[Rfam]
RNA sequence: AAUUUAUACCGAAGAGGUGAGAGAGCAGGCUCCGCGACCCUCUAGCAACCAGUUGAUGAACCAGGUGCUACAUCCUGCCCAAUUUUGGGACCUAUAAGUU
Numbered sequence: 001a002a003u004u005u006a007u008a009c010c011g012a013a014g015a016g017g018u019g020a021g022a023g024a025g026c027a028g029g030c031u032c033c034g035c036g037a038c039c040c041u042c043u044a045g046c047a048a049c050c051a052g053u054u055g056a057u058g059a060a061c062c063a064g065g066u067g068c069u070a071c072a073u074c075c076u077g078c079c080c081a082a083u084u085u086u087g088g089g090a091c092c093u094a095u096a097a098g099u100u
Base pairs, nucleotide, nucleotide: 001100002099003098004097005096006095007094008093013043014042015041016040017039021032022031023030026077027076028075029074044069045068046067047066049065050064052061053060054059078089079088080087081086
Description:
The record is a 100-nucleotide RNA from Pontibacter flavimaris, which matches "SAM riboswitch aptamer (S box leader)" in Rfam. The SAM riboswitch is found upstream of a number of genes which code for proteins involved in methionine or cysteine biosynthesis in Gram-positive bacteria. The SAM riboswitch acts at the level of transcription termination control. The predicted structure consists of a complex stem-loop region followed by a single stem loop terminator region. An alternative and mutually exclusive form involves bases in the 3' segment of helix 1 with those in the 5' region of helix 5 to form a structure termed the anti-terminator form. This entry represents the conserved core of the complex structure involving helices 1-4. The source organism's lineage runs through Bacteria, Bacteroidota, Cytophagales, Hymenobacteraceae and Pontibacter.